[Rfam]
RNA sequence: UAAGACAAGUAGAAGCACCCGCUUCUCACCUGAUUGACACAGUCGAUGUAGUUAACAGGUAUAUGUUUUCCGACGUAUUCGUAAUGAAAUGAAGACAGGUGUGGGUGCAGUAUGUGCAUUCACACCUUUUUUGUAUG
Number, nucleotide and partner (000 for none) at each position: 001u000002a000003a000004g000005a000006c000007a000008a000009g000010u000011a026012g025013a024014a023015g022016c021017a000018c000019c000020c000021g016022c015023u014024u013025c012026u011027c000028a060029c059030c058031u000032g000033a000034u000035u000036g053037a052038c051039a049040c048041a000042g000043u000044c000045g000046a000047u000048g040049u039050a000051g038052u037053u036054a000055a000056c000057a000058g030059g029060u028061a000062u000063a000064u000065g000066u000067u000068u000069u000070c000071c000072g000073a000074c000075g000076u000077a000078u000079u000080c000081g000082u000083a000084a000085u000086g000087a000088a000089a000090u000091g000092a000093a000094g000095a000096c000097a000098g000099g000100u124101g123102u122103g121104g120105g119106u118107g117108c116109a115110g000111u000112a000113u000114g000115u109116g108117c107118a106119u105120u104121c103122a102123c101124a100125c000126c000127u000128u000129u000130u000131u000132u000133g000134u000135a000136u000137g000
RNA: Ribosomal protein L20 leader
Organism: Gracilibacillus halophilus